[Rfam]
RNA: S4-Fusobacteriales ribosomal protein leader
RNA sequence: CUGUAAAGAUAUGUUUGGCUGUAGGGUCUAUUCUUAGGGAAACCUGAGGCAUAUCGAGGAA
Numbered sequence: 001c002u003g004u005a006a007a008g009a010u011a012u013g014u015u016u017g018g019c020u021g022u023a024g025g026g027u028c029u030a031u032u033c034u035u036a037g038g039g040a041a042a043c044c045u046g047a048g049g050c051a052u053a054u055c056g057a058g059g060a061a
Base pairs, nucleotide, nucleotide: 008055009054010053011052012051013050014030017028018027019026020025033048034047035046036045037044